[Rfam]
RNA sequence: AGCAGUAACAGCAUAGUAAGGUGAGAAUCCUUACCUUCGCAAGUGCAAGGGUUUCCAGGCAAUGCGUCAUCAGCCUGGAGUUAGUCGGUCCUAAGAAUAAUCUCAACAGAAUUAUUCGAAAGGGAAACUGGUUAAUAUUCCAGUACCCGACAGUGAGCGUUAUCAUCUAUAUGAUCGCUUUAAGAUAAGGCAAGUACAACCGUCGUUGUAUCUAACUUUUCGAGAUUUGGGGAGUGUCGUAAUGACGAGAACCAAUUCGAGUGGGGAAUGGCUUGGCGUUAGCUGAGUUUGUCUGAGUCUUGGGGACCGUGAAAAAUCAUGUAGAGAGCAAUCUGUCGUGACCGUACCGAGAUCCGACACAGGUGCACUGGAUGAGAAGUCCAAGAAGUAU
Numbered sequence: 001a002g003c004a005g006u007a008a009c010a011g012c013a014u015a016g017u018a019a020g021g022u023g024a025g026a027a028u029c030c031u032u033a034c035c036u037u038c039g040c041a042a043g044u045g046c047a048a049g050g051g052u053u054u055c056c057a058g059g060c061a062a063u064g065c066g067u068c069a070u071c072a073g074c075c076u077g078g079a080g081u082u083a084g085u086c087g088g089u090c091c092u093a094a095g096a097a098u099a100a101u102c103u104c105a106a107c108a109g110a111a112u113u114a115u116u117c118g119a120a121a122g123g124g125a126a127a128c129u130g131g132u133u134a135a136u137a138u139u140c141c142a143g144u145a146c147c148c149g150a151c152a153g154u155g156a157g158c159g160u161u162a163u164c165a166u167c168u169a170u171a172u173g174a175u176c177g178c179u180u181u182a183a184g185a186u187a188a189g190g191c192a193a194g195u196a197c198a199a200c201c202g203u204c205g206u207u208g209u210a211u212c213u214a215a216c217u218u219u220u221c222g223a224g225a226u227u228u229g230g231g232g233a234g235u236g237u238c239g240u241a242a243u244g245a246c247g248a249g250a251a252c253c254a255a256u257u258c259g260a261g262u263g264g265g266g267a268a269u270g271g272c273u274u275g276g277c278g279u280u281a282g283c284u285g286a287g288u289u290u291g292u293c294u295g296a297g298u299c300u301u302g303g304g305g306a307c308c309g310u311g312a313a314a315a316a317u318c319a320u321g322u323a324g325a326g327a328g329c330a331a332u333c334u335g336u337c338g339u340g341a342c343c344g345u346a347c348c349g350a351g352a353u354c355c356g357a358c359a360c361a362g363g364u365g366c367a368c369u370g371g372a373u374g375a376g377a378a379g380u381c382c383a384a385g386a387a388g389u390a391u
Stems, first nucleotide, its partner, number of pairs: 016034006035388004043368004049348002054079006063072002086344003090123002095117006101110003127144005147340001148338006171320003178305008188294005194211005216265003227255004236246003277282001354363002369383004
RNA: Archaeal large subunit ribosomal RNA, nucleotides 1385 to 1775